[Rfam]
RNA sequence: AAUCCCUGUGAAGAUAUUAUGUAGAAAUAAAAGUAGUGGCCUGAUAUACAUUGAUGAUAAUUUAUUCCGAGGGAUU
Number, nucleotide and partner (000 for none) at each position: 001a076002a075003u074004c073005c072006c071007u000008g000009u000010g000011a000012a000013g000014a000015u000016a000017u000018u000019a000020u000021g000022u000023a000024g000025a000026a000027a000028u000029a000030a000031a000032a000033g000034u000035a000036g000037u000038g000039g000040c000041c000042u000043g000044a000045u000046a000047u000048a000049c000050a000051u000052u000053g000054a000055u000056g000057a000058u000059a000060a000061u000062u000063u000064a000065u000066u000067c000068c000069g000070a000071g006072g005073g004074a003075u002076u001
RNA: Small nucleolar RNA R21